This 108-nucleotide RNA sequence from Zizania palustris belongs to the Rfam family "Small nucleolar RNA Z118/Z121/Z120". A search with the family's covariance model found it, with a score of 113 bits. The organism belongs to Zizania, within Eukaryota. Gene Ontology terms of the family: nucleolus and RNA processing.

RNA sequence: UGUUUGCUGUGACGAUUCCUACAAGGACGGUAUCUGAGAAAGGAACCAGUUGAAAGACUGUUCCUUACUUGAUUACAUCCAAAACUGAUCUGAGAUUCUGAGCAAACU
Numbered sequence: 001u002g003u004u005u006g007c008u009g010u011g012a013c014g015a016u017u018c019c020u021a022c023a024a025g026g027a028c029g030g031u032a033u034c035u036g037a038g039a040a041a042g043g044a045a046c047c048a049g050u051u052g053a054a055a056g057a058c059u060g061u062u063c064c065u066u067a068c069u070u071g072a073u074u075a076c077a078u079c080c081a082a083a084a085c086u087g088a089u090c091u092g093a094g095a096u097u098c099u100g101a102g103c104a105a106a107c108u
Stems, first nucleotide, its partner, number of pairs: 002107006038068001040066004
A reference for the family is Chen et al. (2003), "The high diversity of snoRNAs in plants: identification and comparative study of 120 snoRNA genes from Oryza sativa", Nucleic Acids Res.